[Rfam]
RNA: Purine riboswitch aptamer
Organism: Turicibacter sp. HGF1
RNA sequence: UCACAUAAAAAUCACAGCAUUCAUAUAUCAUCGAUAAUAUGGUUCGAAAGUUUCUACCCCUUACCGUAAAUACAGGGACUAUGAAGGUUGUCUAAUAAUAA
Numbered sequence: 001u002c003a004c005a006u007a008a009a010a011a012u013c014a015c016a017g018c019a020u021u022c023a024u025a026u027a028u029c030a031u032c033g034a035u036a037a038u039a040u041g042g043u044u045c046g047a048a049a050g051u052u053u054c055u056a057c058c059c060c061u062u063a064c065c066g067u068a069a070a071u072a073c074a075g076g077g078a079c080u081a082u083g084a085a086g087g088u089u090g091u092c093u094a095a096u097a098a099u100a101a
Stems, first nucleotide, its partner, number of pairs: 018087001020085006031047004058077004062072002